[Rfam]
RNA sequence: AAGGUCUGUCGCGGACCGCCCCCCAUCCCCUGGGGCCGGUCUCUGGUACGGAGCCCCUCCCCAGGCUUCCGUACCCUGGCCCCGCCGAGCCCCCCCUGCUCUGCGGGGCUUUUUU
Numbered sequence: 001a002a003g004g005u006c007u008g009u010c011g012c013g014g015a016c017c018g019c020c021c022c023c024c025a026u027c028c029c030c031u032g033g034g035g036c037c038g039g040u041c042u043c044u045g046g047u048a049c050g051g052a053g054c055c056c057c058u059c060c061c062c063a064g065g066c067u068u069c070c071g072u073a074c075c076c077u078g079g080c081c082c083c084g085c086c087g088a089g090c091c092c093c094c095c096c097u098g099c100u101c102u103g104c105g106g107g108g109c110u111u112u113u114u115u
Base pairs, nucleotide, nucleotide: 004012006011013042014041015040016039017038018037019035020034021033022032045075046074047073048072049071050070051069052067053066054065055064078110079109080108081107082106083105084104085103087101088100089099090098